[Rfam]
RNA sequence: GUUUAGGUUGGCGGCUCUAACGACAUCGUAGCAACCUAGAUACAAGCGUUACUAGCAGGGUAAGAGGAUGUAACAACGCAAUAUCGGUGGCGAAGUUAGUGCCGAUUCCUCGCAAGACUGACGGGU
Dot-bracket structure: ((((((((((..................[[[))))))))))....(((((.]]]..........{{{{......)))))...((((((......[[[[[[))))))}}}}......]]]]]]....
The family of this 126-nucleotide sequence is "Betaproteobacteria-1 RNA".